Background: This 212-nucleotide RNA belongs to the Rfam family "RT-2 RNA". By type it is a small RNA. The base pairs follow the family's consensus structure, which is taken from published work.
RNA sequence: UUAGGUAGGACUUAGUAAGCAGGUUUGCUGAAAACGACGCCUUGAGCGAAGGAGCGCCUGACCCGUUAAACUCGCCGCCGAUGCCUCGCCGCCGGACGCUUGUGUGCAUGGCCGGGGAUGUGCGGUACCCGGUUGCAUGGCGGCGACUACGCAGUUAGAACCCGCACCCGACAAUAAGACUGUACGGAGGCGCAAAAAUGAGCAACGAGGAG
Numbered sequence: 001u002u003a004g005g006u007a008g009g010a011c012u013u014a015g016u017a018a019g020c021a022g023g024u025u026u027g028c029u030g031a032a033a034a035c036g037a038c039g040c041c042u043u044g045a046g047c048g049a050a051g052g053a054g055c056g057c058c059u060g061a062c063c064c065g066u067u068a069a070a071c072u073c074g075c076c077g078c079c080g081a082u083g084c085c086u087c088g089c090c091g092c093c094g095g096a097c098g099c100u101u102g103u104g105u106g107c108a109u110g111g112c113c114g115g116g117g118a119u120g121u122g123c124g125g126u127a128c129c130c131g132g133u134u135g136c137a138u139g140g141c142g143g144c145g146a147c148u149a150c151g152c153a154g155u156u157a158g159a160a161c162c163c164g165c166a167c168c169c170g171a172c173a174a175u176a177a178g179a180c181u182g183u184a185c186g187g188a189g190g191c192g193c194a195a196a197a198a199u200g201a202g203c204a205a206c207g208a209g210g211a212g
Stems, first nucleotide, its partner, number of pairs: 004041003019028002073192004078187003082184001083147001086146008098107002110134007151183005158169001
Dot-bracket structure: ...(((............((......))..........)))...............................((((.(((.((..((((((((....((......))..(((((((...........)))))))....)))))))))...(((((..(..........).........))))))))).))))....................